[Rfam]
RNA sequence: UGAAUUAAGUAGAAACAGCCGUUUCUCACCUUGAGGCUUUGCUAAAGAGGUUUUAAUAGGUUAACUUUUAGUGUUGAGCUAUUUAAAGGACGGCUUUUGCUGUCCUUUUUUUAAUUU
Numbered sequence: 001u002g003a004a005u006u007a008a009g010u011a012g013a014a015a016c017a018g019c020c021g022u023u024u025c026u027c028a029c030c031u032u033g034a035g036g037c038u039u040u041g042c043u044a045a046a047g048a049g050g051u052u053u054u055a056a057u058a059g060g061u062u063a064a065c066u067u068u069u070a071g072u073g074u075u076g077a078g079c080u081a082u083u084u085a086a087a088g089g090a091c092g093g094c095u096u097u098u099g100c101u102g103u104c105c106u107u108u109u110u111u112u113a114a115u116u117u
Stems, first nucleotide, its partner, number of pairs: 011026006028051003036042002089104006
Dot-bracket structure: ..........((((((....)))))).(((.....((...))......))).....................................((((((....)))))).............

A member of the RNA family "Ribosomal protein L20 leader" from Clostridium sp. USBA 49, 117 nucleotides long. A search with the family's covariance model found it, with a score of 60 bits. By type it is a cis-regulatory leader. The source organism's lineage runs through Bacteria, Bacillota, Eubacteriales, Clostridiaceae and Clostridium. From the family's description: This family is a putative r-protein leader autoregulatory structure found in B. subtilis and other low-GC Gram-positive bacteria.